[Rfam]
A member of the RNA family "SAM riboswitch aptamer (S box leader)" from Paenibacillus rhizosphaerae, 127 nucleotides long.
The base pairs follow the family's consensus structure, which is taken from published work.
The source organism's lineage runs through Bacteria, Bacillota, Bacilli, Paenibacillaceae and Paenibacillus.

RNA sequence: AUCUUAUCAAGAGCAGGUGGAGGGACUAGCCCGAUGAAACCCGGCAACCGGCGGUAUUUACGCACGGUGCUAAUUCUUGCAGGAGCAUGGCAGCGGCCUUUGGGCGUUGUCUCCUGACAGAUGAGAG
Number, nucleotide and partner (000 for none) at each position: 001a000002u126003c125004u124005u123006a122007u121008c120009a000010a000011g000012a000013g042014c000015a000016g041017g040018u039019g000020g000021a000022g032023g031024g030025a000026c079027u000028a077029g076030c024031c023032c022033g000034a000035u000036g000037a000038a000039a018040c017041c016042c013043g071044g070045c069046a068047a000048c067049c066050g000051g063052c062053g061054g000055u000056a000057u000058u000059u000060a000061c053062g052063c051064a000065c000066g049067g048068u046069g045070c044071u043072a000073a000074u000075u119076c029077u028078u000079g026080c116081a115082g114083g113084a112085g111086c000087a000088u000089g000090g000091c000092a000093g000094c000095g000096g000097c000098c000099u000100u000101u000102g000103g000104g000105c000106g000107u000108u000109g000110u000111c085112u084113c083114c082115u081116g080117a000118c000119a075120g008121a007122u006123g005124a004125g003126a002127g000